A member of the RNA family "c-di-AMP riboswitch aptamer (ydaO/yuaA leader)" from Nocardia otitidiscaviarum, 165 nucleotides long. About the family: This family represents a conserved RNA structure found upstream of the ydaO and yuaA genes in Bacillus subtilis and related genes in other bacteria.

[Rfam]
RNA sequence: GCGACGUUACCGCCUAAUCGGAAGUCGGGAGAAGGUGCCGACACCGAACCGGGGACCCAGAGUUCGUGGGGUGAAUCCUCAUCGGCCACAAGGCCGCCGAGGUAGGGCCGAUCUUCCCGGCCCGAACCCGUCAGCUAACUCGGUCGGCGGUCAGAGCAAGGAAGA
Numbered sequence: 001g002c003g004a005c006g007u008u009a010c011c012g013c014c015u016a017a018u019c020g021g022a023a024g025u026c027g028g029g030a031g032a033a034g035g036u037g038c039c040g041a042c043a044c045c046g047a048a049c050c051g052g053g054g055a056c057c058c059a060g061a062g063u064u065c066g067u068g069g070g071g072u073g074a075a076u077c078c079u080c081a082u083c084g085g086c087c088a089c090a091a092g093g094c095c096g097c098c099g100a101g102g103u104a105g106g107g108c109c110g111a112u113c114u115u116c117c118c119g120g121c122c123c124g125a126a127c128c129c130g131u132c133a134g135c136u137a138a139c140u141c142g143g144u145c146g147g148c149g150g151u152c153a154g155a156g157c158a159a160g161g162a163a164g165a
Stems, first nucleotide, its partner, number of pairs: 011149004018047003048144006058068002069129003077102004105123004